[Rfam]
Notes:
This 78-nucleotide RNA from Clostridium sp. CAG:448 belongs to the Rfam family "Gut-1 RNA". The family's RNA type in Rfam is small RNA. The source organism's lineage runs through Bacteria, Bacillati, Clostridia, Clostridiaceae and Clostridium. A search with the family's covariance model found it, with a score of 51 bits. The base pairs follow the family's consensus structure, which is taken from published work.
RNA sequence: CAGUGAAAUAAAUUCCUUUGGGAAUUUGCGAAAUAUGCUUUGCAUGUGAAAUACGCCUGCGGGCAUGAGAAAUCGGAU
Numbered sequence: 001c002a003g004u005g006a007a008a009u010a011a012a013u014u015c016c017u018u019u020g021g022g023a024a025u026u027u028g029c030g031a032a033a034u035a036u037g038c039u040u041u042g043c044a045u046g047u048g049a050a051a052u053a054c055g056c057c058u059g060c061g062g063g064c065a066u067g068a069g070a071a072a073u074c075g076g077a078u
Base pairs, nucleotide, nucleotide: 009028010027011026012025013024014023015022033047034046035045036044037043052067053066055064056063057062